[Rfam]
RNA sequence: UACUUACGAGGUGAGAAAGGUAACUCACGCACCGAGUGGACCCCGGCGGCAACCGGCAGACACGCGAUUCGGUAGUUAAGAGAUGAGGGAAACUGAGCGCUCAGUGCCGACCCUCCGUAAGUA
Numbered sequence: 001u002a003c004u005u006a007c008g009a010g011g012u013g014a015g016a017a018a019g020g021u022a023a024c025u026c027a028c029g030c031a032c033c034g035a036g037u038g039g040a041c042c043c044c045g046g047c048g049g050c051a052a053c054c055g056g057c058a059g060a061c062a063c064g065c066g067a068u069u070c071g072g073u074a075g076u077u078a079a080g081a082g083a084u085g086a087g088g089g090a091a092a093c094u095g096a097g098c099g100c101u102c103a104g105u106g107c108c109g110a111c112c113c114u115c116c117g118u119a120a121g122u123a
Stems, first nucleotide, its partner, number of pairs: 001123008011028005030080001031073007085115005

skipping-rope RNA: a 123-nucleotide RNA sequence from Neobacillus mesonae. It is annotated as a small RNA. Taxonomically the source falls in Neobacillus (Bacteria, Bacillati, Bacillota, Caryophanales). It scores 51 bits against the family's covariance model.